[Rfam]
RNA sequence: GCUGUGCGUAAAACGUGCGGGAUGAGAACCUGCCGCAGGUUCGACUGAAUCGCAAAGCGGUUCAGGCUGAUGCGUCAGCAUCACCCGAAGGGCGAGGCCCACCGGGCCGAGGCAAUCCUGCACGACCCACCA
Numbered sequence: 001g002c003u004g005u006g007c008g009u010a011a012a013a014c015g016u017g018c019g020g021g022a023u024g025a026g027a028a029c030c031u032g033c034c035g036c037a038g039g040u041u042c043g044a045c046u047g048a049a050u051c052g053c054a055a056a057g058c059g060g061u062u063c064a065g066g067c068u069g070a071u072g073c074g075u076c077a078g079c080a081u082c083a084c085c086c087g088a089a090g091g092g093c094g095a096g097g098c099c100c101a102c103c104g105g106g107c108c109g110a111g112g113c114a115a116u117c118c119u120g121c122a123c124g125a126c127c128c129a130c131c132a
Stems, first nucleotide, its partner, number of pairs: 015123007023115001034094002040089004047063006069082005